A member of the RNA family "mir-308 microRNA precursor family" from Drosophila melanogaster, 63 nucleotides long. A reference for the family is Skalsky et al. (2010), "Identification of microRNAs expressed in two mosquito vectors, Aedes albopictus and Culex quinquefasciatus", BMC Genomics. Lineage of the source: Eukaryota > Opisthokonta > Pancrustacea > Brachycera > Sophophora. Rfam's curators put it in the seed alignment.
Nucleotides: 063
Base pairs, nucleotide, nucleotide: 001063002062003061004060005059006058007057008056009055010054011053013051014050015049016048017047018046019045021043022042023041024040
Number, partner (000 for none) and nucleotide at each position: 001063c002062u003061c004060g005059c006058a007057g008056u009055a010054u011053a012000u013051u014050u015049u016048u017047g018046u019045g020000u021043u022042u023041u024040g025000u026000u027000u028000c029000g030000u031000u032000u033000u034000g035000c036000a037000a038000u039000c040024c041023a042022a043021a044000u045019c046018a047017c048016a049015g050014g051013a052000u053011u054010a055009u056008a057007c058006u059005g060004u061003g062002a063001g